[Rfam]
RNA sequence: AUAUUUUAAUAAGCGCCUGAACUAAUCCAGGAGACGCUAGGAUUAGUUGACGAGGAGGAGGUUUAUCGAACAUUCGGCGGAUGCCUCCCGGUUGAAAGCACAACCGUAAAUCCCUUCUUUAAAACAUUGAGGCAACUUAAUGUACAAAGAGAAGGGAAUGUUAUUAU
Numbered sequence: 001a002u003a004u005u006u007u008a009a010u011a012a013g014c015g016c017c018u019g020a021a022c023u024a025a026u027c028c029a030g031g032a033g034a035c036g037c038u039a040g041g042a043u044u045a046g047u048u049g050a051c052g053a054g055g056a057g058g059a060g061g062u063u064u065a066u067c068g069a070a071c072a073u074u075c076g077g078c079g080g081a082u083g084c085c086u087c088c089c090g091g092u093u094g095a096a097a098g099c100a101c102a103a104c105c106g107u108a109a110a111u112c113c114c115u116u117c118u119u120u121a122a123a124a125c126a127u128u129g130a131g132g133c134a135a136c137u138u139a140a141u142g143u144a145c146a147a148a149g150a151g152a153a154g155g156g157a158a159u160g161u162u163a164u165u166a167u
Base pairs, nucleotide, nucleotide: 020048021047022046023045024044025043026042027041057088058087059086060085061084066077067076068075069074089106090105091104092103093102094101111157112156113155114154115153116152117151125142126141127140128139129138130137131136
The record is a 167-nucleotide RNA from Bacillus methanolicus, which matches "glmS glucosamine-6-phosphate activated ribozyme aptamer" in Rfam. Its family is annotated with catalytic activity and regulation of gene expression in the Gene Ontology. Rfam classes the family as a riboswitch. Taxonomically the source falls in Bacillus methanolicus (Bacteria, Bacillati, Caryophanales, Bacillaceae).